RNA sequence: AAGCUGUGACGAUUUCUUGUGCUUUCAUGUGAUAGUUGGGCUUAUCACAUCCGACGGCUCUGGUAGCUCGACAUCAUGCACAUCCGAGCUU
Numbered sequence: 001a002a003g004c005u006g007u008g009a010c011g012a013u014u015u016c017u018u019g020u021g022c023u024u025u026c027a028u029g030u031g032a033u034a035g036u037u038g039g040g041c042u043u044a045u046c047a048c049a050u051c052c053g054a055c056g057g058c059u060c061u062g063g064u065a066g067c068u069c070g071a072c073a074u075c076a077u078g079c080a081c082a083u084c085c086g087a088g089c090u091u
Stems, first nucleotide, its partner, number of pairs: 001091004